Source information
Shown here is a 72-nucleotide RNA sequence from Branchiostoma floridae, a member of the family "mir-34 microRNA precursor family". A reference for the family is Lim et al. (2003), "Vertebrate microRNA genes", Science. Rfam describes the family as follows. Human mir-34a was discovered computationally and later experimentally verified. The mature sequence is excised from the 5' arm of the hairpin. Clan: mir-34 clan. Rfam links the family to the GO terms miRNA-mediated post-transcriptional gene silencing and RISC complex. The sequence is in the family's curated seed alignment.
RNA sequence: GCUACAGAGGCAGUGAUGUCAGUUUGUUGUGUGACACGAGACGACAACAACUAACAUCACUGCCAAGGAAAC
Numbered sequence: 001g002c003u004a005c006a007g008a009g010g011c012a013g014u015g016a017u018g019u020c021a022g023u024u025u026g027u028u029g030u031g032u033g034a035c036a037c038g039a040g041a042c043g044a045c046a047a048c049a050a051c052u053a054a055c056a057u058c059a060c061u062g063c064c065a066a067g068g069a070a071a072c
Base pairs, nucleotide, nucleotide: 003070005068009064010063012061013060014059015058016057017056018055019054021052022051024050025049026048027047028046029045030044